The record is a 117-nucleotide RNA from Macrostomum lignano, which matches "Potassium channel RNA editing signal" in Rfam. Rfam links the family to the GO term adenosine to inosine editing. About the family: This family represents a group of sequences related to the human potassium channel Kv1.1 hairpin element which directs the efficient modification of an adenosine to inosine by an adenosine deaminase acting on RNA (ADAR). The ADAR modification causes an isoleucine/valine recoding event which lies in the ion-conducting pore of the potassium channel. It is thought that this editing event targets the process of fast inactivation and allows a more rapid recovery from inactivation at negative potentials. It scores 66 bits against the family's covariance model. The family's RNA type in Rfam is cis-regulatory element.
[Rfam]
RNA sequence: UUCAGAAGUGGUCAUCUAAGGUCACUCACAAAUAUUUCAGGCAUGCUAGUGGGCGCCCUCUGCGCCCUCACAGGAGUGCUGACCAUCGCGCUGCCUGUGCCGGUCAUUGUGUCCAAC
Numbered sequence: 001u002u003c004a005g006a007a008g009u010g011g012u013c014a015u016c017u018a019a020g021g022u023c024a025c026u027c028a029c030a031a032a033u034a035u036u037u038c039a040g041g042c043a044u045g046c047u048a049g050u051g052g053g054c055g056c057c058c059u060c061u062g063c064g065c066c067c068u069c070a071c072a073g074g075a076g077u078g079c080u081g082a083c084c085a086u087c088g089c090g091c092u093g094c095c096u097g098u099g100c101c102g103g104u105c106a107u108u109g110u111g112u113c114c115a116a117c
Stems, first nucleotide, its partner, number of pairs: 002116001005113001008110004014104003021100002024098002040080004052066003